[Rfam]
RNA sequence: GCCAUCUGUUUCCAUUAAGGUUUUCAGAUGCCUGUCAUGGGCACUGCUGAGAAAGCUACUUGGAAGAGCUAAUGGCAAACA
Numbered sequence: 001g002c003c004a005u006c007u008g009u010u011u012c013c014a015u016u017a018a019g020g021u022u023u024u025c026a027g028a029u030g031c032c033u034g035u036c037a038u039g040g041g042c043a044c045u046g047c048u049g050a051g052a053a054a055g056c057u058a059c060u061u062g063g064a065a066g067a068g069c070u071a072a073u074g075g076c077a078a079a080c081a
Stems, first nucleotide, its partner, number of pairs: 001076004

Source information:
This 81-nucleotide RNA sequence from Marmota monax belongs to the Rfam family "Small nucleolar RNA SNORD35". The match comes from Rfam's covariance-model search (40 bits). A reference for the family is Nicoloso et al. (1996), "Intron-encoded, antisense small nucleolar RNAs: the characterization of nine novel species points to their direct role as guides for the 2'-O-ribose methylation of rRNAs", J Mol Biol. Rfam classes the family as a C/D-box small nucleolar RNA. U35 is a C/D box snoRNA located in intron 6 of ribosomal protein L13A and intron 3 of ribosomal protein S11 in humans and at homologous positions in mouse and chicken ribosomal protein genes. U35 guides the methylation of 2'-O-ribose sites in 28S rRNA. NCBI's taxonomy places the organism under Eukaryota, Tetrapoda, Eutheria, Rodentia, Marmota.